[Rfam]
RNA sequence: UGUCCGAUGCCACGUCGCCGGUAGCGAAAAUUUGCAAGCGAUGCUAUGAUCGGGCCUAAAUCAAAACAAUUUGUUGUUGUUUCGCUGCUGAUAGGAACCUGUGGAUCUGAUAUUAAGCCGUUCAUCAACGGAGCCGAUUUCUGCGAUUACAGUU
Numbered sequence: 001u002g003u004c005c006g007a008u009g010c011c012a013c014g015u016c017g018c019c020g021g022u023a024g025c026g027a028a029a030a031u032u033u034g035c036a037a038g039c040g041a042u043g044c045u046a047u048g049a050u051c052g053g054g055c056c057u058a059a060a061u062c063a064a065a066a067c068a069a070u071u072u073g074u075u076g077u078u079g080u081u082u083c084g085c086u087g088c089u090g091a092u093a094g095g096a097a098c099c100u101g102u103g104g105a106u107c108u109g110a111u112a113u114u115a116a117g118c119c120g121u122u123c124a125u126c127a128a129c130g131g132a133g134c135c136g137a138u139u140u141c142u143g144c145g146a147u148u149a150c151a152g153u154u
Stems, first nucleotide, its partner, number of pairs: 002055007009047001013043006021035004082146004094135002099131003104126003
Small nucleolar RNA snoR2/U65: a 154-nucleotide RNA from Nelumbo nucifera. Rfam classes the family as an H/ACA-box small nucleolar RNA.